RNA sequence: GCCGGGAAGAAAACAAAAGAGAGAGCUCGAGAGCAAUAGGAAUGGGAAUAUAGAGGAAGGUCCUCCUUGUUUGUUUGCACCUCUAGUGUUGGGGUGCAAAUAUUUGGCAUGAAUCCUUUCCUCAUGGCUCCCAUUCUUACCGUUCUUGUGCACUCCUUCCUCUUCCUUUUGGCU
Numbered sequence: 001g002c003c004g005g006g007a008a009g010a011a012a013a014c015a016a017a018a019g020a021g022a023g024a025g026c027u028c029g030a031g032a033g034c035a036a037u038a039g040g041a042a043u044g045g046g047a048a049u050a051u052a053g054a055g056g057a058a059g060g061u062c063c064u065c066c067u068u069g070u071u072u073g074u075u076u077g078c079a080c081c082u083c084u085a086g087u088g089u090u091g092g093g094g095u096g097c098a099a100a101u102a103u104u105u106g107g108c109a110u111g112a113a114u115c116c117u118u119u120c121c122u123c124a125u126g127g128c129u130c131c132c133a134u135u136c137u138u139a140c141c142g143u144u145c146u147u148g149u150g151c152a153c154u155c156c157u158u159c160c161u162c163u164u165c166c167u168u169u170u171g172g173c174u
Base pairs, nucleotide, nucleotide: 009165010164011163013161016158017157021155022154023153026150028148029147030146031145032144033143034142037139038138039137040136041135042134043133044132045131046130047129049126050125051124053122055121056120057119058118059117060116
Dot-bracket structure: ........(((.(..((...(((..(.(((((((..(((((((((((.(((.(.((((((.......................................................))))))).)))..)))))))))))..))))))).)..))).))..).))).........
Source information: The record is a 174-nucleotide RNA sequence from Triticum aestivum, which matches "MIR2118 microRNA precursor family" in Rfam. Pairs were carried over by alignment from the consensus structure, which was predicted with RNAalifold. It scores 109 bits against the family's covariance model.